RNA: RtT RNA
Organism: Pseudescherichia vulneris
RNA sequence: AUAUGCACUUAUCGGGGAAGGGUAAGAACCUUUGACUAAGGUUCGACUCGAGCGACAGCGAGAGAACGUUGCCAUCAGGCAACGGCCCGAAGGGUGAGGAGCGAAGCGACGAAUAAUCCUUCCCCCACCACCA
Numbered sequence: 001a002u003a004u005g006c007a008c009u010u011a012u013c014g015g016g017g018a019a020g021g022g023u024a025a026g027a028a029c030c031u032u033u034g035a036c037u038a039a040g041g042u043u044c045g046a047c048u049c050g051a052g053c054g055a056c057a058g059c060g061a062g063a064g065a066a067c068g069u070u071g072c073c074a075u076c077a078g079g080c081a082a083c084g085g086c087c088c089g090a091a092g093g094g095u096g097a098g099g100a101g102c103g104a105a106g107c108g109a110c111g112a113a114u115a116a117u118c119c120u121u122c123c124c125c126c127a128c129c130a131c132c133a
Stems, first nucleotide, its partner, number of pairs: 015124007023116001033096002036094002042091004049060002067084006